Rfam assigns this 90-nucleotide RNA from Populus trichocarpa to the family "small nucleolar RNA snoR114". Its family is annotated with RNA processing and nucleolus in the Gene Ontology. Pairs were carried over by alignment from the consensus structure, which was predicted with RNAalifold. It is annotated as a C/D-box small nucleolar RNA.

RNA sequence: GAGCUGUGAUGACCUCUGUGCUCAACGUGAUGAUAGGGUCUAUCACUACCGUCUGAUCAUCAUCGGACGAAAGCGAGCGCAUCUGAGCUC
Numbered sequence: 001g002a003g004c005u006g007u008g009a010u011g012a013c014c015u016c017u018g019u020g021c022u023c024a025a026c027g028u029g030a031u032g033a034u035a036g037g038g039u040c041u042a043u044c045a046c047u048a049c050c051g052u053c054u055g056a057u058c059a060u061c062a063u064c065g066g067a068c069g070a071a072a073g074c075g076a077g078c079g080c081a082u083c084u085g086a087g088c089u090c
Stems, first nucleotide, its partner, number of pairs: 001090004